[Rfam]
Nucleotides: 096
Base pairs, nucleotide, nucleotide: 005082006081008079009078010077011076012075015072016071017070018069020067021066022065024063025061026060028059029058030057031056032055033054035052036051
Number, partner (000 for none) and nucleotide at each position: 001000u002000c003000c004000a005082g006081g007000c008079g009078c010077a011076g012075g013000g014000c015072a016071g017070c018069c019000a020067c021066u022065g023000c024063c025061c026060a027000c028059c029058g030057c031056a032055c033054a034000c035052u036051g037000c038000g039000c040000u041000g042000c043000u044000c045000c046000c047000g048000a049000c050000c051036c052035a053000c054033u055032g056031u057030g058029c059028g060026u061025g062000u063024g064000a065022c066021a067020g068000c069018g070017g071016c072015u073000g074000a075012u076011c077010u078009g079008u080000c081006c082005c083000u084000g085000g086000g087000c088000a089000g090000c091000g092000c093000g094000a095000g096000c

Rfam assigns this 96-nucleotide RNA sequence from Cavia porcellus to the family "mir-210 microRNA precursor family". The family's consensus secondary structure was predicted with WAR.